[Rfam]
RNA sequence: GCCUCGGAUCGUGACUGGCGUGAUCGUAAGGUGGGACUGACCACCGGGGAGCGGUCCUGCACGUCGCCGCGCGCCUGGGUGCCCUCA
Numbered sequence: 001g002c003c004u005c006g007g008a009u010c011g012u013g014a015c016u017g018g019c020g021u022g023a024u025c026g027u028a029a030g031g032u033g034g035g036a037c038u039g040a041c042c043a044c045c046g047g048g049g050a051g052c053g054g055u056c057c058u059g060c061a062c063g064u065c066g067c068c069g070c071g072c073g074c075c076u077g078g079g080u081g082c083c084c085u086c087a
Base pairs, nucleotide, nucleotide: 004059006057007056008055009054010053011052012051015048016047017075018074019073020072021071031044032043033042034041065081066080067079068078